[Rfam]
RNA sequence: CAACCUCUGGCGAGAUCCGUGUAUGUUG
Numbered sequence: 001c002a003a004c005c006u007c008u009g010g011c012g013a014g015a016u017c018c019g020u021g022u023a024u025g026u027u028g
Stems, first nucleotide, its partner, number of pairs: 001028004008023001010020003
Dot-bracket structure: ((((...(.(((.....)))..).))))
This 28-nucleotide sequence belongs to the Rfam family "L19-Flavobacteria ribosomal protein leader". Pairs were carried over by alignment from the consensus structure, which is taken from published work. It is one of the family's seed sequences. The family's RNA type in Rfam is cis-regulatory leader.